mir-172 microRNA precursor family: a 142-nucleotide RNA sequence from Ensete ventricosum. Rfam 15.1 lists 2,076 matches to the family in 219 species. Rfam's curators write: mir-172 has been experimentally verified in Arabidopsis thaliana. This family is thought to target mRNAs coding for APETALA2-like transcription factors. The mature sequence is excised from the 3' arm of the hairpin.
RNA sequence: CUAUUUGCUGGUGCAGCAUCAUCAAGAUUCACAAGCUCUUAUCAAAGAACUCCAUCGCUGUCUGAGGAGACUAAAGACCUCAGAAGAUAGGCAUGGAAUAUGAGAGAUGUGAGAAUCUUGAUGAUGCUGCAUCGGCAGAUAC
Numbered sequence: 001c002u003a004u005u006u007g008c009u010g011g012u013g014c015a016g017c018a019u020c021a022u023c024a025a026g027a028u029u030c031a032c033a034a035g036c037u038c039u040u041a042u043c044a045a046a047g048a049a050c051u052c053c054a055u056c057g058c059u060g061u062c063u064g065a066g067g068a069g070a071c072u073a074a075a076g077a078c079c080u081c082a083g084a085a086g087a088u089a090g091g092c093a094u095g096g097a098a099u100a101u102g103a104g105a106g107a108u109g110u111g112a113g114a115a116u117c118u119u120g121a122u123g124a125u126g127c128u129g130c131a132u133c134g135g136c137a138g139a140u141a142c
Stems, first nucleotide, its partner, number of pairs: 010133021032111002
Taxonomically the source falls in Ensete (Eukaryota, Embryophyta, Mesangiospermae, commelinids).